[Rfam]
RNA sequence: CCCACAGCUUGCGCUCAGGCUUUCGAUACGGCAGAGGACGUCCUGGCGUCAGACAUAUCCCGCGGAUAUGGAAUCGUUACGGAACCGCGCACACUGAGCGGCUCCACACGGCCGCAACGC
Numbered sequence: 001c002c003c004a005c006a007g008c009u010u011g012c013g014c015u016c017a018g019g020c021u022u023u024c025g026a027u028a029c030g031g032c033a034g035a036g037g038a039c040g041u042c043c044u045g046g047c048g049u050c051a052g053a054c055a056u057a058u059c060c061c062g063c064g065g066a067u068a069u070g071g072a073a074u075c076g077u078u079a080c081g082g083a084a085c086c087g088c089g090c091a092c093a094c095u096g097a098g099c100g101g102c103u104c105c106a107c108a109c110g111g112c113c114g115c116a117a118c119g120c
Base pairs, nucleotide, nucleotide: 007120008119009117010116011115012114013113014111015110024076025075026074027073028049029048030047032045033044034043054070055069056068057067058066059065060064081105082104083103085101086100087099088098
This 120-nucleotide sequence belongs to the Rfam family "DUF3268 RNA". The family's RNA type in Rfam is small RNA. Rfam's curators put it in the seed alignment.